RNA: mir-46/mir-47/mir-281 microRNA precursor family
Organism: Biomphalaria glabrata
RNA sequence: UGACCCAAACGAUGAAGGGAGCAUCCGUCGACAGUCGGAAAGAAAGCACUGUCAUGGAGUUGCUCUCUUUACCGCUAAGUCA
Numbered sequence: 001u002g003a004c005c006c007a008a009a010c011g012a013u014g015a016a017g018g019g020a021g022c023a024u025c026c027g028u029c030g031a032c033a034g035u036c037g038g039a040a041a042g043a044a045a046g047c048a049c050u051g052u053c054a055u056g057g058a059g060u061u062g063c064u065c066u067c068u069u070u071a072c073c074g075c076u077a078a079g080u081c082a
Base pairs, nucleotide, nucleotide: 014070015069016068017067018066020064021063022062024058025057026056027055030053031052032051034049035048